Shown here is a 92-nucleotide sequence from Populus trichocarpa, a member of the family "MIR476 microRNA precursor family". The base pairs follow the family's consensus structure, which was predicted with RNAalifold. Lineage of the source: Eukaryota > Viridiplantae > Streptophyta > Saliceae > Populus. For this family Rfam cites "Novel and mechanical stress-responsive MicroRNAs in Populus trichocarpa that are absent from Arabidopsis" (Lu et al., Plant Cell, 2005). Its family is annotated with miRNA-mediated post-transcriptional gene silencing and RISC complex in the Gene Ontology.
[Rfam]
RNA sequence: GCUAGUAAUCCUUCUUUGCAAAGUCAUUUAUUAUUUUUCCUUCAAUUACUAUAAUCAAUGACUUUGCAAAGAUAGAUUUACUAGCUAAAUCU
Numbered sequence: 001g002c003u004a005g006u007a008a009u010c011c012u013u014c015u016u017u018g019c020a021a022a023g024u025c026a027u028u029u030a031u032u033a034u035u036u037u038u039c040c041u042u043c044a045a046u047u048a049c050u051a052u053a054a055u056c057a058a059u060g061a062c063u064u065u066g067c068a069a070a071g072a073u074a075g076a077u078u079u080a081c082u083a084g085c086u087a088a089a090u091c092u
Base pairs, nucleotide, nucleotide: 001085002084003083004082005081006080007079008078011075012074013072014071015070016069017068018067019066020065021064022063023062024061025060026059027058028057030055031054032053033052034051